[Rfam]
Source information
This 87-nucleotide sequence from Olea europaea belongs to the Rfam family "mir-160 microRNA precursor family". It scores 79 bits against the family's covariance model. NCBI's taxonomy places the organism under Eukaryota, Embryophyta, Mesangiospermae, asterids, Olea europaea. Its family is annotated with miRNA-mediated post-transcriptional gene silencing and RISC complex in the Gene Ontology. On this family, see Rhoades et al., Cell 2002: "Prediction of plant microRNA targets". The base pairs follow the family's consensus structure, which was predicted with PFOLD.
RNA sequence: AUAUGCCUGGCUCCCUGUAUGCCAUUUGCAGAGCCCACCGAUGAACCGAUGGCCCUCCGCGGAUGGCGUAUGAGGAGCCAAGCAUAU
Numbered sequence: 001a002u003a004u005g006c007c008u009g010g011c012u013c014c015c016u017g018u019a020u021g022c023c024a025u026u027u028g029c030a031g032a033g034c035c036c037a038c039c040g041a042u043g044a045a046c047c048g049a050u051g052g053c054c055c056u057c058c059g060c061g062g063a064u065g066g067c068g069u070a071u072g073a074g075g076a077g078c079c080a081a082g083c084a085u086a087u
Base pairs, nucleotide, nucleotide: 001087002086003085004084005083006082008080009079010078011077012076013075014074016072017071018070019069020068021067022066023065024064027061028060029059